[Rfam]
RNA sequence: GUCGGCUAUGGUGAUAUGGUUCCACAUGAAUUUUGGGGUAAAAUGGUUGGCUCUCUUUGUGCUAUUGCUGGUGUACUUACCCUGUCUCUUCCCGUGCCUGUGAUAGUCUCAAAU
Numbered sequence: 001g002u003c004g005g006c007u008a009u010g011g012u013g014a015u016a017u018g019g020u021u022c023c024a025c026a027u028g029a030a031u032u033u034u035g036g037g038g039u040a041a042a043a044u045g046g047u048u049g050g051c052u053c054u055c056u057u058u059g060u061g062c063u064a065u066u067g068c069u070g071g072u073g074u075a076c077u078u079a080c081c082c083u084g085u086c087u088c089u090u091c092c093c094g095u096g097c098c099u100g101u102g103a104u105a106g107u108c109u110c111a112a113a114u
Stems, first nucleotide, its partner, number of pairs: 001114002005110001008107002011104001014101003018097001021094001037077004049063003
Shown here is a 114-nucleotide sequence from Tetranychus urticae, a member of the family "Potassium channel RNA editing signal". It is annotated as a cis-regulatory element. Rfam links the family to the GO term adenosine to inosine editing. NCBI's taxonomy places the organism under Eukaryota, Eumetazoa, Bilateria, Chelicerata, Tetranychus.